[Rfam]
The family of this 155-nucleotide RNA from Pseudomonas sp. THAF187a is "FMN riboswitch aptamer (RFN element)".
Gene Ontology term of the family: FMN binding.
The organism belongs to Pseudomonas, within Bacteria.
The match comes from Rfam's covariance-model search (105 bits).
The family's consensus secondary structure is taken from published work.
The RFN element is a highly conserved domain that is found frequently in the 5'-untranslated regions of prokaryotic mRNAs that encode for flavin mononucleotide (FMN) biosynthesis and transport proteins. This element is a metabolite-dependent riboswitch that directly binds FMN in the absence of proteins.
RNA sequence: CAACGUUCUCAGGGCGGGGCGCAAUUCCCCACCGGCGGUAAUGGUUCGCAGAACCUAGCCCGCGAGCGCUCGCCACGGCACCUGCCGUGCGAGGUCCAGCAGACCCGGUGCGAUUCCGGGGCCGACGGUAUAGUCCGGAUAAAGAGAGAGCGGGA
Numbered sequence: 001c002a003a004c005g006u007u008c009u010c011a012g013g014g015c016g017g018g019g020c021g022c023a024a025u026u027c028c029c030c031a032c033c034g035g036c037g038g039u040a041a042u043g044g045u046u047c048g049c050a051g052a053a054c055c056u057a058g059c060c061c062g063c064g065a066g067c068g069c070u071c072g073c074c075a076c077g078g079c080a081c082c083u084g085c086c087g088u089g090c091g092a093g094g095u096c097c098a099g100c101a102g103a104c105c106c107g108g109u110g111c112g113a114u115u116c117c118g119g120g121g122c123c124g125a126c127g128g129u130a131u132a133g134u135c136c137g138g139a140u141a142a143a144g145a146g147a148g149a150g151c152g153g154g155a
Base pairs, nucleotide, nucleotide: 004152005151006150007149008148009147010146017029018028019027031134032133033124034123035063036062037061038060058122059121066100067099104120105119106118107117108116126137127136128135